[Rfam]
RNA sequence: GCAUUCUAUUCGUUUAAGAUAAGCCGGCAAUAAAAAAGUGGUAAAACUAUCCACGAUUGUGGGCUUUUUGUUGUGCUUAUUUUUACGAAUCAGGGCAUGGAUACAGGUUAGGUAUGGCUUUUUCCCGCUAUCCCUUUCUCUUUGUUUGCCUUUUCUCGUUGAUAUGCAGAUCCAAAGCCCGCAUUGCGGACUUGGGCCUGUAUUUUUUAU
Numbered sequence: 001g002c003a004u005u006c007u008a009u010u011c012g013u014u015u016a017a018g019a020u021a022a023g024c025c026g027g028c029a030a031u032a033a034a035a036a037a038g039u040g041g042u043a044a045a046a047c048u049a050u051c052c053a054c055g056a057u058u059g060u061g062g063g064c065u066u067u068u069u070g071u072u073g074u075g076c077u078u079a080u081u082u083u084u085a086c087g088a089a090u091c092a093g094g095g096c097a098u099g100g101a102u103a104c105a106g107g108u109u110a111g112g113u114a115u116g117g118c119u120u121u122u123u124c125c126c127g128c129u130a131u132c133c134c135u136u137u138c139u140c141u142u143u144g145u146u147u148g149c150c151u152u153u154u155c156u157c158g159u160u161g162a163u164a165u166g167c168a169g170a171u172c173c174a175a176a177g178c179c180c181g182c183a184u185u186g187c188g189g190a191c192u193u194g195g196g197c198c199u200g201u202a203u204u205u206u207u208u209a210u
Base pairs, nucleotide, nucleotide: 004094006093007092010089011087012086013085017082018081019080020079021078022077023076024075027074028073029072030071031070032069033068034067035066036065040064047062048061049060050059096148097147100146101145102144103143105139106138107137110135111134112133116129117128118127164203165202166201167200168199169198172196173195175193176192177191179189180188181187182186
Enterococcus sRNA 1300: a 210-nucleotide RNA sequence from Desulforamulus ruminis. A reference for the family is Sinel et al. (2017), "Small RNAs in vancomycin-resistant Enterococcus faecium involved in daptomycin response and resistance", Sci Rep. From the family's description: Expressed in mid and late exponential phases of growth. Expression remained uniform under daptomycin exposure. Pairs were carried over by alignment from the consensus structure, which was predicted with RNAfold. NCBI's taxonomy places the organism under Bacteria, Bacillati, Clostridia, Desulforamulus, Desulforamulus ruminis. By type it is a small RNA.